[Rfam]
RNA sequence: UGCACUGUGUGGUAUCUGCACCCAGCAGCCUUCUCCUGGUGGGGUGUUCAAAGAACAGUGCCACAGUAGGUCAGCGUUUGGCAUCGUUGGUUUUCAUUCUGCUGUGUCUGUGAAACCUGGUAUUUGUGCUGAUACAGCC
Dot-bracket structure: .((((((.......((((((((((.(((.......))).).))))))....))).))))))..((..((.((((.....(((((...................)))))........))))..))..))...........

A member of the RNA family "Small nucleolar RNA SNORA8" from Calidris pygmaea, 139 nucleotides long. Its Rfam clan is "SNORA8 clan". The match comes from Rfam's covariance-model search (104 bits). NCBI's taxonomy places the organism under Eukaryota, Archosauria, Neognathae, Charadriiformes, Calidris. Rfam links the family to the GO terms nucleolus and RNA processing.